[Rfam]
RNA: t44 RNA
Organism: Alteromonadaceae bacterium M269
RNA sequence: UUAAUAAAUUCGUUAAUACACACAUAUAUCGACACGAGGUUCGGGGUGUUCUAAUGGGAUAUUUUCCUGUUGGGAUCGAGGUUCGGGAUAUAUGGAGGCUUAAC
Numbered sequence: 001u002u003a004a005u006a007a008a009u010u011c012g013u014u015a016a017u018a019c020a021c022a023c024a025u026a027u028a029u030c031g032a033c034a035c036g037a038g039g040u041u042c043g044g045g046g047u048g049u050u051c052u053a054a055u056g057g058g059a060u061a062u063u064u065u066c067c068u069g070u071u072g073g074g075a076u077c078g079a080g081g082u083u084c085g086g087g088a089u090a091u092a093u094g095g096a097g098g099c100u101u102a103a104c
Stems, first nucleotide, its partner, number of pairs: 023094008035085004040080004048076009